[Rfam]
RNA sequence: CUCAACUUUACAACCGAGGAUGGGAAUGACGGAACCAUGUAUCCUGAAACCAUCCCGCCAACACUCCUGCGCGUGUCAUGUUUAACAGAGCAUGAGGUGUGAAGUACAGGUAGAUUCGGCAGAACGAAGGCUAGAGCCAUUUUGAGAAAAAAAAAGGUGCGCCAACGGAUAUGUCGCGCGGCUGAGAA
Numbered sequence: 001c002u003c004a005a006c007u008u009u010a011c012a013a014c015c016g017a018g019g020a021u022g023g024g025a026a027u028g029a030c031g032g033a034a035c036c037a038u039g040u041a042u043c044c045u046g047a048a049a050c051c052a053u054c055c056c057g058c059c060a061a062c063a064c065u066c067c068u069g070c071g072c073g074u075g076u077c078a079u080g081u082u083u084a085a086c087a088g089a090g091c092a093u094g095a096g097g098u099g100u101g102a103a104g105u106a107c108a109g110g111u112a113g114a115u116u117c118g119g120c121a122g123a124a125c126g127a128a129g130g131c132u133a134g135a136g137c138c139a140u141u142u143u144g145a146g147a148a149a150a151a152a153a154a155a156g157g158u159g160c161g162c163c164a165a166c167g168g169a170u171a172u173g174u175c176g177c178g179c180g181g182c183u184g185a186g187a188a
Base pairs, nucleotide, nucleotide: 018055019054020053021052022051023050031045032044034042056180057179058178066110067109068108069107070101071100072099073098074097076095077094078093079092080091081090082089083088117176118175119174120173121172125167126166129163130162131146132145153158